Rfam assigns this 256-nucleotide sequence from Pseudomonas aeruginosa to the family "Pseudomonas sRNA P24". The source organism's lineage runs through Bacteria, Pseudomonadales, Pseudomonadaceae, Pseudomonas and Pseudomonas aeruginosa. The sequence is in the family's curated seed alignment. This small RNA (sRNA) was computationally identified in the genome of the opportunistic pathogen Pseudomonas aeruginosa and its expression verified by Northern blot analysis. P24 is conserved across several Pseudomonas species and in Azotobacter vinelandii. It appears to be consistently located between a hypothetical protein gene and a transcriptional regulator gene (AsnC family) in the genomes of all these species. P24 has a predicted Rho independent terminator at the 3' end but the function of P24 is unknown.
RNA sequence: UUGCGCAAUCAAGGUUCUGGUGAGCAAUAUUAGCAAUCAUUGGUCGCGCCUGGCGACGUAUUCUUUUACCCAGAUUCACGGCCCGGACAUCUCGUCCAUCACGGCUCGCCCAAUCAGGCCAGCCGUGGCCGCCGACCCUACAGGGUUGCGCCGGCCUCCGGGUUGCACACCGCCCAGAAGGUGGAGUGAGGUGAGCCGUCGCCAAUAGCGCCGAGCCAGGACAGUUACCCCAGAAGGGAGGUCGACGGGCCUCCCU
Numbered sequence: 001u002u003g004c005g006c007a008a009u010c011a012a013g014g015u016u017c018u019g020g021u022g023a024g025c026a027a028u029a030u031u032a033g034c035a036a037u038c039a040u041u042g043g044u045c046g047c048g049c050c051u052g053g054c055g056a057c058g059u060a061u062u063c064u065u066u067u068a069c070c071c072a073g074a075u076u077c078a079c080g081g082c083c084c085g086g087a088c089a090u091c092u093c094g095u096c097c098a099u100c101a102c103g104g105c106u107c108g109c110c111c112a113a114u115c116a117g118g119c120c121a122g123c124c125g126u127g128g129c130c131g132c133c134g135a136c137c138c139u140a141c142a143g144g145g146u147u148g149c150g151c152c153g154g155c156c157u158c159c160g161g162g163u164u165g166c167a168c169a170c171c172g173c174c175c176a177g178a179a180g181g182u183g184g185a186g187u188g189a190g191g192u193g194a195g196c197c198g199u200c201g202c203c204a205a206u207a208g209c210g211c212c213g214a215g216c217c218a219g220g221a222c223a224g225u226u227a228c229c230c231c232a233g234a235a236g237g238g239a240g241g242u243c244g245a246c247g248g249g250c251c252u253c254c255c256u
Base pairs, nucleotide, nucleotide: 001012002011003010043057044056045055046054076194077193078192079191081163082162083161084160085097086096087095088094101126102125103124104123105122108119109118110117127156128155129154130153131152134147135146136145137144138143166188167187168186170184171183172182173181174180195216196215197213198212200210201209202208235256236255237254238253240251241250242249243248